[Rfam]
RNA sequence: GGCGUCCUCACUGGAGAGAGGCUGCACCCGGGGCAGCCCACCGAAGGGGCAAGCGGGUCGAGGUGCGACACACCGGAACCGGCCAAUCUCUCAGGUAAAGCGGACAGCGAGGGCAGG
Numbered sequence: 001g002g003c004g005u006c007c008u009c010a011c012u013g014g015a016g017a018g019a020g021g022c023u024g025c026a027c028c029c030g031g032g033g034c035a036g037c038c039c040a041c042c043g044a045a046g047g048g049g050c051a052a053g054c055g056g057g058u059c060g061a062g063g064u065g066c067g068a069c070a071c072a073c074c075g076g077a078a079c080c081g082g083c084c085a086a087u088c089u090c091u092c093a094g095g096u097a098a099a100g101c102g103g104a105c106a107g108c109g110a111g112g113g114c115a116g117g
Base pairs, nucleotide, nucleotide: 006112007111008110009109011107012106013105020038021037022036023035024034025033040096041095042094043092044091047090048089049088053083054082
Glycine riboswitch aptamer: a 117-nucleotide sequence from Methylibium petroleiphilum. Gene Ontology term of the family: glycine biosynthetic process.